[Rfam]
RNA sequence: GACUGGUCUGAAGGUAGUGAGUUGUCUCAAUUGAUUGUUCACAGUCAGUUAUAGAUUGAACUUAUUGUUCUACUCUUUCCCCCUUCUCACUACUGCACUUGACUAGUCUGUU
Numbered sequence: 001g002a003c004u005g006g007u008c009u010g011a012a013g014g015u016a017g018u019g020a021g022u023u024g025u026c027u028c029a030a031u032u033g034a035u036u037g038u039u040c041a042c043a044g045u046c047a048g049u050u051a052u053a054g055a056u057u058g059a060a061c062u063u064a065u066u067g068u069u070c071u072a073c074u075c076u077u078u079c080c081c082c083c084u085u086c087u088c089a090c091u092a093c094u095g096c097a098c099u100u101g102a103c104u105a106g107u108c109u110g111u112u
Base pairs, nucleotide, nucleotide: 001108002107003106004105005104006103007102008101010100011099014096015095016091017090018089019088020087021086043074044073045072047071048070
RNA: Y RNA